[Rfam]
This 84-nucleotide RNA sequence from Spirodela intermedia belongs to the Rfam family "small nucleolar RNA snoR117". A reference for the family is Chen and Wu (2009), "Mining small RNA sequencing data: a new approach to identify small nucleolar RNAs in Arabidopsis", Nucleic Acids Res. A search with the family's covariance model found it, with a score of 45 bits. Pairs were carried over by alignment from the consensus structure, which was predicted with RNAalifold.
RNA sequence: GGCCGCUGAUGCUAUGCAUUGUCCGUACCAUCCGAGAACCGCUUGCGGUUUCUGAUGAGACGCAUUAUCUCUUAACUGAGGCCC
Numbered sequence: 001g002g003c004c005g006c007u008g009a010u011g012c013u014a015u016g017c018a019u020u021g022u023c024c025g026u027a028c029c030a031u032c033c034g035a036g037a038a039c040c041g042c043u044u045g046c047g048g049u050u051u052c053u054g055a056u057g058a059g060a061c062g063c064a065u066u067a068u069c070u071c072u073u074a075a076c077u078g079a080g081g082c083c084c
Base pairs, nucleotide, nucleotide: 001083002082003081004080

Its family is annotated with RNA processing and nucleolus in the Gene Ontology. Taxonomically the source falls in Spirodela (Eukaryota, Streptophytina, Spermatophyta, Magnoliopsida).